[Rfam]
RNA sequence: CGCGGUCCUCGGUAGUGACUCGCGGGACGGGCCCCGAAGCCCUGGGCCCGAGAGUCUCGAUCGAAGACCGGG
Numbered sequence: 001c002g003c004g005g006u007c008c009u010c011g012g013u014a015g016u017g018a019c020u021c022g023c024g025g026g027a028c029g030g031g032c033c034c035c036g037a038a039g040c041c042c043u044g045g046g047c048c049c050g051a052g053a054g055u056c057u058c059g060a061u062c063g064a065a066g067a068c069c070g071g072g
Stems, first nucleotide, its partner, number of pairs: 001072001003070005009064005017056005023050004032046003
RNA: Actino-pnp RNA
Organism: Arthrobacter woluwensis